small nucleolar RNA snoR117: a 95-nucleotide RNA from Apostasia shenzhenica.
A reference for the family is Chen and Wu (2009), "Mining small RNA sequencing data: a new approach to identify small nucleolar RNAs in Arabidopsis", Nucleic Acids Res.
The family's RNA type in Rfam is C/D-box small nucleolar RNA.
The source organism's lineage runs through Eukaryota, Magnoliopsida, Liliopsida, Apostasioideae and Apostasia.
The family has 6 seed sequences and 419 matches in Rfam 15.1.
A search with the family's covariance model found it, with a score of 49 bits.
Pairs were carried over by alignment from the consensus structure, which was predicted with RNAalifold.
Rfam links the family to the GO terms RNA processing and nucleolus.
RNA sequence: GGCCUGUGAUCUGAAAGCAUUGUCCGUACCAUCCGAGAACUGGCAAAAGCCACUUCUCUGAUGAAAUCUGUUUCUACCUCUAGCUUCUGAGGCCG
Numbered sequence: 001g002g003c004c005u006g007u008g009a010u011c012u013g014a015a016a017g018c019a020u021u022g023u024c025c026g027u028a029c030c031a032u033c034c035g036a037g038a039a040c041u042g043g044c045a046a047a048a049g050c051c052a053c054u055u056c057u058c059u060g061a062u063g064a065a066a067u068c069u070g071u072u073u074c075u076a077c078c079u080c081u082a083g084c085u086u087c088u089g090a091g092g093c094c095g
Base pairs, nucleotide, nucleotide: 001094002093003092004091